[Rfam]
RNA sequence: UGCCUAACCCUCAGGAGCAAUUCUGAGGUAUGGCACAAUAAGAAAUCUCACGUGAAUAGAAACGGUCUUCCGACCGGCACUUAUUCACGUGAGUCAAUGUUUCGAAAGAGGCAUUGAGCAGUCCCGAAAGGGUUCUGUU
Numbered sequence: 001u002g003c004c005u006a007a008c009c010c011u012c013a014g015g016a017g018c019a020a021u022u023c024u025g026a027g028g029u030a031u032g033g034c035a036c037a038a039u040a041a042g043a044a045a046u047c048u049c050a051c052g053u054g055a056a057u058a059g060a061a062a063c064g065g066u067c068u069u070c071c072g073a074c075c076g077g078c079a080c081u082u083a084u085u086c087a088c089g090u091g092a093g094u095c096a097a098u099g100u101u102u103c104g105a106a107a108g109a110g111g112c113a114u115u116g117a118g119c120a121g122u123c124c125c126g127a128a129a130g131g132g133u134u135c136u137g138u139u
Stems, first nucleotide, its partner, number of pairs: 001035004009028007047093011063076004095116008117139005
The record is a 139-nucleotide RNA, which matches "LOOT RNA" in Rfam. The family's consensus secondary structure is taken from published work.